A member of the RNA family "c-di-AMP riboswitch aptamer (ydaO/yuaA leader)" from Streptomyces albus, 139 nucleotides long. The base pairs follow the family's consensus structure. The match comes from Rfam's covariance-model search (73 bits).
RNA sequence: ACCCACCUCCCGCCCGCCGUCCGCGGCGCCGGGAACGCAGUUCCUGGGGUGAAUCGGGCGCCCCCGCAAGGGCGUUCCGUAGGAGACCUUCCUACUCCGAACCCGUCAGCUAACCCGGUAGGCGACAGGGAAGGAAAGG
Numbered sequence: 001a002c003c004c005a006c007c008u009c010c011c012g013c014c015c016g017c018c019g020u021c022c023g024c025g026g027c028g029c030c031g032g033g034a035a036c037g038c039a040g041u042u043c044c045u046g047g048g049g050u051g052a053a054u055c056g057g058g059c060g061c062c063c064c065c066g067c068a069a070g071g072g073c074g075u076u077c078c079g080u081a082g083g084a085g086a087c088c089u090u091c092c093u094a095c096u097c098c099g100a101a102c103c104c105g106u107c108a109g110c111u112a113a114c115c116c117g118g119u120a121g122g123c124g125a126c127a128g129g130g131a132a133g134g135a136a137a138g139g
Base pairs, nucleotide, nucleotide: 011124012123013122014121016027017026018025028119029118030117031116032115033114038046039045047104048103049102055079056078057077058076082098083097084096085095